[Rfam]
RNA sequence: GGGCGCUUGAGGCUGUAUGCCGAAAGCGUUUUGUGGACGGUAUACAGCAGAAAGCCCCUGGAGAUUUUUUUAUCAAUCAACCAAGGGCUCUACUGUAAUGCCUAGACAACAUUAUAGUAGCCCGAUAACCGCCGUAAGGCAAUGGAGGGGCUAUGAUG
Numbered sequence: 001g002g003g004c005g006c007u008u009g010a011g012g013c014u015g016u017a018u019g020c021c022g023a024a025a026g027c028g029u030u031u032u033g034u035g036g037a038c039g040g041u042a043u044a045c046a047g048c049a050g051a052a053a054g055c056c057c058c059u060g061g062a063g064a065u066u067u068u069u070u071u072a073u074c075a076a077u078c079a080a081c082c083a084a085g086g087g088c089u090c091u092a093c094u095g096u097a098a099u100g101c102c103u104a105g106a107c108a109a110c111a112u113u114a115u116a117g118u119a120g121c122c123c124g125a126u127a128a129c130c131g132c133c134g135u136a137a138g139g140c141a142a143u144g145g146a147g148g149g150g151c152u153a154u155g156a157u158g
Base pairs, nucleotide, nucleotide: 001058002057003056005055006054007053008052012048013047014046015045016044017043018042019041020040021039022038026034027033059083060082061081063078064077065076066075085123086122087121088120092118093117094116095115096114097113098112099111100110129149130148133145
The record is a 158-nucleotide RNA from Escherichia coli, which matches "sok antitoxin (CssrC)" in Rfam. The family's RNA type in Rfam is antitoxin RNA. Also identified in Shigella as CssrC.